Small nucleolar RNA SNORD17: a 209-nucleotide RNA from Carassius auratus.
[Rfam]
RNA sequence: GUGGCGUGAUGAACGUGUUUAUCCAUUCGCCGAGCGCCGCUGGUUCUGUCCCUCAGCGGCCGUGUGGCCCGUUCUGGGUCACGGGGUCACAGCCGUCUGGUAAUGCUCUGCUGGUCUGACGUUCUGUCGGGUCACUGGUGUGGGGUCUGACGUGCUGGUGCGAGGGGUCAGACCGGUUCUGACAAAGACGAAUAGACGUGUCUGAUCAC
Numbered sequence: 001g002u003g004g005c006g007u008g009a010u011g012a013a014c015g016u017g018u019u020u021a022u023c024c025a026u027u028c029g030c031c032g033a034g035c036g037c038c039g040c041u042g043g044u045u046c047u048g049u050c051c052c053u054c055a056g057c058g059g060c061c062g063u064g065u066g067g068c069c070c071g072u073u074c075u076g077g078g079u080c081a082c083g084g085g086g087u088c089a090c091a092g093c094c095g096u097c098u099g100g101u102a103a104u105g106c107u108c109u110g111c112u113g114g115u116c117u118g119a120c121g122u123u124c125u126g127u128c129g130g131g132u133c134a135c136u137g138g139u140g141u142g143g144g145g146u147c148u149g150a151c152g153u154g155c156u157g158g159u160g161c162g163a164g165g166g167g168u169c170a171g172a173c174c175g176g177u178u179c180u181g182a183c184a185a186a187g188a189c190g191a192a193u194a195g196a197c198g199u200g201u202c203u204g205a206u207c208a209c
Base pairs, nucleotide, nucleotide: 010208011207012206014204017201018200020198023195025193026192027191028190029189030187034183039177040176041175042174045172046171047170048169050167051166052164053163054162057158058088059087060086061085063083064082065081066080067079068078069077070076092155093154094152095151096150097149105141106140107138110135112134113133114132115131116130117129118128119127120126121125
Rfam's curators write: The snoRNA HBI-43 belongs to the C/D family of snoRNAs, guiding 2'O-ribose methylation at position U3797 of the 28S rRNA. Pseudouridylation in position U3797 is predicted to be guided by the H/ACA snoRNA ACA48. Rfam links the family to the GO terms nucleolus and RNA processing. A reference for the family is Huttenhofer et al. (2001), "RNomics: an experimental approach that identifies 201 candidates for novel, small, non-messenger RNAs in mouse", EMBO J. Lineage of the source: Eukaryota > Bilateria > Euteleostomi > Cyprinoidei > Carassius.